[Rfam]
RNA sequence: UUGGCAUGAUGAGGAAAGAAAUACAAGUCUGAUCUGCUAGAUGAGAAAUUCCUCCUACUCAUUCUGA
Numbered sequence: 001u002u003g004g005c006a007u008g009a010u011g012a013g014g015a016a017a018g019a020a021a022u023a024c025a026a027g028u029c030u031g032a033u034c035u036g037c038u039a040g041a042u043g044a045g046a047a048a049u050u051c052c053u054c055c056u057a058c059u060c061a062u063u064c065u066g067a
Stems, first nucleotide, its partner, number of pairs: 006062004028045001029040001

This 67-nucleotide RNA from Zea mays belongs to the Rfam family "Small nucleolar RNA Z105". The family's RNA type in Rfam is C/D-box small nucleolar RNA. Rfam links the family to the GO terms nucleolus and RNA processing.